mir-2970 microRNA precursor family: an 80-nucleotide RNA sequence from Ornithorhynchus anatinus. The organism belongs to Ornithorhynchus, within Eukaryota. Rfam links the family to the GO terms RISC complex and miRNA-mediated post-transcriptional gene silencing.
[Rfam]
RNA sequence: GUCACUGCAGACGGUCAGUAGUUGGUCUGGUGUGAGCAGCAAUUCUCAGAUCAUCUCUUGGCUAUGGAUGGUGGAGAGAG
Numbered sequence: 001g002u003c004a005c006u007g008c009a010g011a012c013g014g015u016c017a018g019u020a021g022u023u024g025g026u027c028u029g030g031u032g033u034g035a036g037c038a039g040c041a042a043u044u045c046u047c048a049g050a051u052c053a054u055c056u057c058u059u060g061g062c063u064a065u066g067g068a069u070g071g072u073g074g075a076g077a078g079a080g
Stems, first nucleotide, its partner, number of pairs: 003073005011065001013063006020056002023053008